[Rfam]
RNA sequence: UAGCUAUAAAAUAACUUAGUCUAUAGCCACUUUGAGUUACGAUAAUUAGUAUGCUAAUUUACAUAAUUAUAGUAACUCCUUACUAAGUGGUUUACUGUAAUGUUAUGGUAAAUAUCUCCAUGUGUUAUAGUAACAUAAUUAUCGUAAAUAUGUAUUCACUUUAUCGUAAAUUAAGUAUAAAAAUUAUCGUAAAUGAAGGUGGCUAAAGAAUAAUGUAUUAUAUAUAUA
Numbered sequence: 001u002a003g004c005u006a007u008a009a010a011a012u013a014a015c016u017u018a019g020u021c022u023a024u025a026g027c028c029a030c031u032u033u034g035a036g037u038u039a040c041g042a043u044a045a046u047u048a049g050u051a052u053g054c055u056a057a058u059u060u061a062c063a064u065a066a067u068u069a070u071a072g073u074a075a076c077u078c079c080u081u082a083c084u085a086a087g088u089g090g091u092u093u094a095c096u097g098u099a100a101u102g103u104u105a106u107g108g109u110a111a112a113u114a115u116c117u118c119c120a121u122g123u124g125u126u127a128u129a130g131u132a133a134c135a136u137a138a139u140u141a142u143c144g145u146a147a148a149u150a151u152g153u154a155u156u157c158a159c160u161u162u163a164u165c166g167u168a169a170a171u172u173a174a175g176u177a178u179a180a181a182a183a184u185u186a187u188c189g190u191a192a193a194u195g196a197a198g199g200u201g202g203c204u205a206a207a208g209a210a211u212a213a214u215g216u217a218u219u220a221u222a223u224a225u226a227u228a
Base pairs, nucleotide, nucleotide: 001228002227005224006223007222008221010219011218012217013216016213017212018211020209021208022207024205025204026203027202028201029200030199031198032197033196037192038191039190040189041188042187043186044185045184046183047182050179051178052177053176054175055173056172057171058170059169060168061167062166066164067163069161072157074155080147081146082145083144087142088141089140090139091138092137093132094131095130096129097128098127099126100125101124102123103122107117108116
About this RNA:
A member of the RNA family "MIR6217 microRNA precursor family" from Miscanthus lutarioriparius, 228 nucleotides long. Rfam 15.1 lists 2,266 matches to the family in 13 species. The organism belongs to Miscanthus, within Eukaryota. A search with the family's covariance model found it, with a score of 139 bits.